The record is a 358-nucleotide part of an RNA from Haloarchaeobius iranensis, which matches "Archaeal large subunit ribosomal RNA" in Rfam.
The base pairs follow the family's consensus structure, which is taken from published work.
Taxonomically the source falls in Haloarchaeobius (Archaea, Methanobacteriota, Halobacteria, Halorubellaceae).

RNA sequence: CAUAGUAGCAGCGAUAGUCGGGUGAGAACCCCGACGGCCGAAUGAGCAAGGGUUCCUCGACAAUGCUGAUCAGUCGAGGGUUAGCCGAUCCUAAGUCACACCGUAAGUCGAAUGUGACGACAGGGAAACUGGUUAAUAUUCCAGUGCUCACAGACAGUAAACGCCGACGCCUUGGGAACAAUCGAGCUGGGCCAUCGCCCAGUCGAAUUAUGCAACUCCGUGGAAGCCGUAACGGCACGAAGCGGACGAACCAUGAGACAGCGAAAGUCGAUCGUACCUAGGGCCCGUGAAAAGGCAAGUCUGUGACUCGUACCAAGAACCGACACAGGUGCUCAUGGCGGCGAAAGCCAAGGCCUGU
Numbered sequence: 001c002a003u004a005g006u007a008g009c010a011g012c013g014a015u016a017g018u019c020g021g022g023u024g025a026g027a028a029c030c031c032c033g034a035c036g037g038c039c040g041a042a043u044g045a046g047c048a049a050g051g052g053u054u055c056c057u058c059g060a061c062a063a064u065g066c067u068g069a070u071c072a073g074u075c076g077a078g079g080g081u082u083a084g085c086c087g088a089u090c091c092u093a094a095g096u097c098a099c100a101c102c103g104u105a106a107g108u109c110g111a112a113u114g115u116g117a118c119g120a121c122a123g124g125g126a127a128a129c130u131g132g133u134u135a136a137u138a139u140u141c142c143a144g145u146g147c148u149c150a151c152a153g154a155c156a157g158u159a160a161a162c163g164c165c166g167a168c169g170c171c172u173u174g175g176g177a178a179c180a181a182u183c184g185a186g187c188u189g190g191g192c193c194a195u196c197g198c199c200c201a202g203u204c205g206a207a208u209u210a211u212g213c214a215a216c217u218c219c220g221u222g223g224a225a226g227c228c229g230u231a232a233c234g235g236c237a238c239g240a241a242g243c244g245g246a247c248g249a250a251c252c253a254u255g256a257g258a259c260a261g262c263g264a265a266a267g268u269c270g271a272u273c274g275u276a277c278c279u280a281g282g283g284c285c286c287g288u289g290a291a292a293a294g295g296c297a298a299g300u301c302u303g304u305g306a307c308u309c310g311u312a313c314c315a316a317g318a319a320c321c322g323a324c325a326c327a328g329g330u331g332c333u334c335a336u337g338g339c340g341g342c343g344a345a346a347g348c349c350a351a352g353g354c355c356u357g358u
Base pairs, nucleotide, nucleotide: 017035018034019033020032021031022030036355037354038353039352044334045333046332047331050314051313055079056078057077058076059075060074064072065071086310087309088308090124091123095118096117097116098115099114100113102110103109128145129144130143131142132141148306149305150304151303152302153301154300155299163296164295165294169284170283171282172281173280174279175278176277181272182271183270184269186203187202188201189200190199208256209255210254211253217246218245219244220243221242226236227235228234262267320329321328336350337349338348339347
On this family, see Yusupov et al., Science 2001: "Crystal structure of the ribosome at 5.5 A resolution".